The family of this 103-nucleotide sequence from Halobacillus halophilus is "SAM riboswitch aptamer (S box leader)". Pairs were carried over by alignment from the consensus structure, which is taken from published work.

RNA sequence: AUCUUAUCGUGAGUGAUUGAGGGACAGGCCCGUUGAUAUCACAGCAACCUUCCUAAAGGGAGUGGUGCUAAUUCCUUCAGAAUGUACUUCUGGAAGAUAAGAG
Number, nucleotide and partner (000 for none) at each position: 001a000002u102003c101004u100005u099006a098007u097008c096009g000010u000011g000012a000013g042014u041015g040016a039017u038018u000019g000020a000021g031022g030023g029024a000025c000026a076027g075028g074029c023030c022031c021032g000033u000034u000035g000036a000037u000038a017039u016040c015041a014042c013043a069044g068045c067046a066047a000048c065049c064050u061051u060052c059053c058054u000055a000056a000057a000058g053059g052060g051061a050062g000063u000064g049065g048066u046067g045068c044069u043070a000071a000072u000073u095074c028075c027076u026077u000078c092079a091080g090081a089082a088083u000084g000085u000086a000087c000088u082089u081090c080091u079092g078093g000094a000095a073096g008097a007098u006099a005100a004101g003102a002103g000